A member of the RNA family "Bacteriophage Diversity-Generating Retroelement RNA", 132 nucleotides long.
It is one of the family's seed sequences.
It is annotated as a small RNA.

RNA sequence: GCUCUGCACUUUCCAAAUGGCGGUGCAGGCCGAUCACUAUUUAGGGUGGUCAGCUUGGUUGUCCUGCUUCGGCGAACACACAUCUGGGUUUGGUAGAACGCAGAGUACCCACGAGCGAAAUGCGGAGCCAAC
Number, nucleotide and partner (000 for none) at each position: 001g030002c029003u000004c028005u027006g026007c025008a024009c023010u022011u000012u000013c020014c019015a000016a000017a000018u000019g014020g013021c000022g010023g009024u008025g007026c006027a005028g004029g002030c001031c000032g000033a000034u000035c000036a000037c000038u000039a000040u000041u000042u000043a000044g000045g000046g000047u000048g000049g000050u000051c000052a000053g000054c000055u000056u000057g000058g000059u000060u000061g000062u000063c000064c000065u074066g073067c072068u000069u000070c000071g000072g067073c066074g065075a000076a000077c000078a000079c000080a000081c000082a000083u000084c000085u000086g000087g000088g132089u000090u131091u130092g129093g128094u127095a000096g000097a000098a000099c124100g123101c122102a121103g000104a000105g000106u000107a000108c000109c115110c000111a000112c000113g000114a000115g109116c000117g000118a000119a000120a000121u102122g101123c100124g099125g000126a000127g094128c093129c092130a091131a090132c088
A reference for the family is Handa et al. (2025), "RNA control of reverse transcription in a diversity-generating retroelement", Nature.